Description
The record is a 105-nucleotide sequence from Manihot esculenta, which matches "MIR403 microRNA precursor family" in Rfam. Gene Ontology terms of the family: miRNA-mediated post-transcriptional gene silencing and RISC complex.
RNA sequence: ACAUAUCUCUAGUUUGUGUGUGAAUCGAACCCCAUCUCACCUCGACCGUCCAUUUUCACGGCCAUCCAAUGGUGUUAGAUUCACGCACAAACUCGUGAUCUGUCU
Number, nucleotide and partner (000 for none) at each position: 001a103002c102003a101004u000005a099006u098007c097008u000009c000010u000011a093012g092013u091014u090015u089016g088017u087018g086019u085020g084021u083022g082023a081024a080025u079026c078027g000028a076029a075030c074031c000032c072033c071034a000035u000036c000037u000038c000039a000040c000041c000042u000043c000044g062045a000046c060047c000048g000049u000050c000051c000052a000053u000054u000055u000056u000057c000058a000059c000060g046061g000062c044063c000064a000065u000066c000067c000068a000069a000070u000071g033072g032073u000074g030075u029076u028077a000078g026079a025080u024081u023082c022083a021084c020085g019086c018087a017088c016089a015090a014091a013092c012093u011094c000095g000096u000097g007098a006099u005100c000101u003102g002103u001104c000105u000
Background: For this family Rfam cites "High throughput approaches reveal splicing of primary microRNA transcripts and tissue specific expression of mature microRNAs in Vitis vinifera" (Mica et al., BMC Genomics, 2009). The source organism's lineage runs through Eukaryota, Embryophyta, Euphyllophyta, Magnoliopsida and Manihot. The base pairs follow the family's consensus structure, which was predicted with WAR.